[Rfam]
This 209-nucleotide RNA sequence from Niallia endozanthoxylica belongs to the Rfam family "Group II catalytic intron D1-D4-5". The literature on the family includes a 2003 paper in Crit Rev Biochem Mol Biol by Lehmann and Schmidt, "Group II introns: structure and catalytic versatility of large natural ribozymes". It scores 144 bits against the family's covariance model. Its family is annotated with Group II intron splicing in the Gene Ontology. Pairs were carried over by alignment from the consensus structure. Group II introns are found in rRNA, tRNA and mRNA of organelles in fungi, plants and protists, and also in mRNA in bacteria.
Nucleotides: 209
Stems, first nucleotide, its partner, number of pairs: 018055006031045001033043001056201004066112004070104005076098006083091001119197005127188006133159003140154002164181007
Number, partner (000 for none) and nucleotide at each position: 001000u002000c003000u004000a005000a006000c007000u008000u009000c010000u011000a012000a013000u014000u015000c016000g017000a018055u019054g020053g021052u022051u023050g024000a025000a026000a027000u028000g029000a030000g031045g032000a033043a034000a035000c036000c037000a038000u039000g040000u041000u042000c043033u044000c045031c046000g047000a048000a049000g050023c051022g052021a053020c054019c055018a056201c057200a058199c059198u060000a061000a062000g063000a064000u065000u066112c067111c068110u069109g070104c071103g072102u073101g074100c075000g076098u077097u078096c079095a080094u081093c082000a083091u084000g085000a086000c087000a088000g089000a090000a091083a092000g093081g094080a095079u096078g097077a098076a099000g100074g101073u102072a103071c104070g105000a106000a107000g108000c109069c110068a111067g112066g113000u114000a115000a116000a117000g118000u119197c120196g121195g122194u123193u124000g125000a126000a127188g128187a129186u130185u131184a132183c133159c134158g135157u136000a137000a138000a139000u140154g141153a142000u143000a144000g145000c146000a147000a148000c149000a150000c151000c152000g153141u154140c155000a156000u157135a158134c159133g160000a161000a162000a163000c164181u165180c166179u167178u168177u169176u170175a171000g172000c173000g174000g175170u176169a177168a178167a179166g180165g181164a182000u183132g184131u185130a186129a187128u188127u189000g190000a191000u192000a193123a194122a195121c196120c197119g198059g199058g200057u201056g202000u203000c204000u205000a206000u207000a208000a209000a